pemK RNA: a 67-nucleotide sequence from Listeria seeligeri. The sequence is in the family's curated seed alignment.
RNA sequence: AUAAUGAUACUCACACUUUUAACUAAGUGUCCUGUCGAAUUGGCGAGGGGAGGUGAGAUUCCUGUGU
Dot-bracket structure: ...........(((((((......))))))(((.(((......))).)))(((.......))))...
Record summary: NCBI's taxonomy places the organism under Bacteria, Bacillati, Caryophanales, Listeria, Listeria seeligeri. The family's RNA type in Rfam is cis-regulatory element.